RNA sequence: AAAGGCCCCGGGCCCUUACUCCUACCUUAUAGGGGCACGGGAGCCGUAAAAAAGGAGGAGACCUAACCCGCCGGGCCGGCGGUGCGGCAGUGUGGAGACCUGUCGUAACGUCCGCGGAGCUAUGCGCUCUGCGGGCGAGGGGGUACUUGCGGAGGCAUUGCCCCUACGGCCUGUGUACAUGGCA
Numbered sequence: 001a002a003a004g005g006c007c008c009c010g011g012g013c014c015c016u017u018a019c020u021c022c023u024a025c026c027u028u029a030u031a032g033g034g035g036c037a038c039g040g041g042a043g044c045c046g047u048a049a050a051a052a053a054g055g056a057g058g059a060g061a062c063c064u065a066a067c068c069c070g071c072c073g074g075g076c077c078g079g080c081g082g083u084g085c086g087g088c089a090g091u092g093u094g095g096a097g098a099c100c101u102g103u104c105g106u107a108a109c110g111u112c113c114g115c116g117g118a119g120c121u122a123u124g125c126g127c128u129c130u131g132c133g134g135g136c137g138a139g140g141g142g143g144u145a146c147u148u149g150c151g152g153a154g155g156c157a158u159u160g161c162c163c164c165u166a167c168g169g170c171c172u173g174u175g176u177a178c179a180u181g182g183c184a
Stems, first nucleotide, its partner, number of pairs: 007041004012036007068082004072173007083107008092099002110136009139165007148157003
About this RNA: The family of this 184-nucleotide RNA from Intestinimonas butyriciproducens is "malK-I RNA". The family's RNA type in Rfam is cis-regulatory element. The match comes from Rfam's covariance-model search (136 bits).